[Rfam]
RNA sequence: CCCUUCUCACUAAAGCACCCUGCUGAAACUGCAGGAGCCAAGCCUCACAGGUUUAGCUCAUGUGGCCGUGUAAGCAUGGGUACACCAGAGAAGGAGAUUAAAGGCAUGGUAUUGGAAAUGAGGCUAGGAGGGACCUCUUUCUUAAUGUCCAGUUUCCUUUGUCUCGAAAUCCUGUGUUACACAA
Numbered sequence: 001c002c003c004u005u006c007u008c009a010c011u012a013a014a015g016c017a018c019c020c021u022g023c024u025g026a027a028a029c030u031g032c033a034g035g036a037g038c039c040a041a042g043c044c045u046c047a048c049a050g051g052u053u054u055a056g057c058u059c060a061u062g063u064g065g066c067c068g069u070g071u072a073a074g075c076a077u078g079g080g081u082a083c084a085c086c087a088g089a090g091a092a093g094g095a096g097a098u099u100a101a102a103g104g105c106a107u108g109g110u111a112u113u114g115g116a117a118a119u120g121a122g123g124c125u126a127g128g129a130g131g132g133a134c135c136u137c138u139u140u141c142u143u144a145a146u147g148u149c150c151a152g153u154u155u156c157c158u159u160u161g162u163c164u165c166g167a168a169a170u171c172c173u174g175u176g177u178u179a180c181a182c183a184a
Stems, first nucleotide, its partner, number of pairs: 018080002021076004028069002031066001035059001037057002040054005103178007111170001126155001128153001131150003
Shown here is a 184-nucleotide sequence from Pundamilia nyererei, a member of the family "Small nucleolar RNA SNORA81". The organism belongs to Pundamilia, within Eukaryota. It is annotated as an H/ACA-box small nucleolar RNA. Pairs were carried over by alignment from the consensus structure, which was predicted with WAR.